[Rfam]
RNA: MIR6450 microRNA precursor family
Organism: Populus deltoides
RNA sequence: AGGACCCAAUUCGCUUGGGUCCCGCGUUAGGCCUAAGGGUAAUGGGUCUUGCGUCCGGACCCAAUUCUCUUGGGUCUCCCGUCAGGACCCAAGACUAAUGGGUCCU
Numbered sequence: 001a002g003g004a005c006c007c008a009a010u011u012c013g014c015u016u017g018g019g020u021c022c023c024g025c026g027u028u029a030g031g032c033c034u035a036a037g038g039g040u041a042a043u044g045g046g047u048c049u050u051g052c053g054u055c056c057g058g059a060c061c062c063a064a065u066u067c068u069c070u071u072g073g074g075u076c077u078c079c080c081g082u083c084a085g086g087a088c089c090c091a092a093g094a095c096u097a098a099u100g101g102g103u104c105c106u
Stems, first nucleotide, its partner, number of pairs: 001106008014093009024083001029077008043063007